[Rfam]
RNA sequence: CAGUCGUUAUAUGACUGACGGAAUGAGUGGAGAACCACGUGGAGUAUAACAUGGCAGUUUUAUUGGCUGCCGAAGAAUGCAAUGUCUCUUCGAGGCAUCGCAGGCGAUGCUUCAGAGAAGCGUUGCAAUUGCCGACCGUCUGGGCAACAAAA
Numbered sequence: 001c002a003g004u005c006g007u008u009a010u011a012u013g014a015c016u017g018a019c020g021g022a023a024u025g026a027g028u029g030g031a032g033a034a035c036c037a038c039g040u041g042g043a044g045u046a047u048a049a050c051a052u053g054g055c056a057g058u059u060u061u062a063u064u065g066g067c068u069g070c071c072g073a074a075g076a077a078u079g080c081a082a083u084g085u086c087u088c089u090u091c092g093a094g095g096c097a098u099c100g101c102a103g104g105c106g107a108u109g110c111u112u113c114a115g116a117g118a119a120g121c122g123u124u125g126c127a128a129u130u131g132c133c134g135a136c137c138g139u140c141u142g143g144g145c146a147a148c149a150a151a152a
Stems, first nucleotide, its partner, number of pairs: 006050007015041001017140005027038004129147005

Description:
This 152-nucleotide RNA sequence from Roseburia sp. CAG:197 belongs to the Rfam family "ZMP/ZTP riboswitch aptamer (pfl RNA motif)". Its family is annotated with regulation of purine nucleotide biosynthetic process and one-carbon metabolic process in the Gene Ontology. A reference for the family is Jones et al. (2019), "Co-crystal structure of the Fusobacterium ulcerans ZTP riboswitch using an X-ray free-electron laser", Acta Crystallogr F Struct Biol Commun. Lineage of the source: Bacteria > Bacillota > Lachnospirales > Lachnospiraceae > Roseburia.